[Rfam]
RNA sequence: CGAACCCGGGCGGGAGAGUCCCGUGUCCCGACCCCGCUGAGGGGGGCGAGGACGACGGGCGCCGGAGGAGCAAGCACCCCGCCAAUCUCUCAGGCACCCACACCGCUCGGGCGAG
Number, nucleotide and partner (000 for none) at each position: 001c000002g000003a000004a000005c000006c110007c109008g108009g107010g106011c105012g104013g103014g000015a000016g000017a000018g000019u000020c059021c058022c057023g056024u000025g000026u000027c000028c000029c000030g000031a000032c000033c000034c000035c000036g000037c000038u000039g000040a000041g000042g000043g000044g000045g000046g000047c000048g000049a000050g000051g000052a000053c000054g000055a000056c023057g022058g021059g020060c000061g095062c094063c093064g091065g090066a000067g000068g089069a088070g087071c000072a000073a000074g082075c081076a000077c000078c000079c000080c000081g075082c074083c000084a000085a000086u000087c070088u069089c068090u065091c064092a000093g063094g062095c061096a000097c000098c000099c000100a000101c000102a000103c013104c012105g011106c010107u009108c008109g007110g006111g000112c000113g000114a000115g000
The record is a 115-nucleotide RNA sequence from Pseudonocardia thermophila, which matches "Glycine riboswitch aptamer" in Rfam. Lineage of the source: Bacteria > Bacillati > Actinomycetota > Pseudonocardiaceae > Pseudonocardia.